Shown here is a 90-nucleotide RNA from Mycetocola lacteus, a member of the family "Glycine riboswitch aptamer". Taxonomically the source falls in Mycetocola (Bacteria, Actinomycetota, Micrococcales, Microbacteriaceae).

RNA sequence: UAAACCACCGCGGGAGAGUCCCGAUGUUUGGGCGCCGUAGGAGCAAACCCUCCCCGGGAAUCUCUCAGGCCCAUGGACCGCAGUGGUGCG
Dot-bracket structure: .....(((.((((......((((.....)))).((((...(((....(.......).....))).).))).......)))).))).....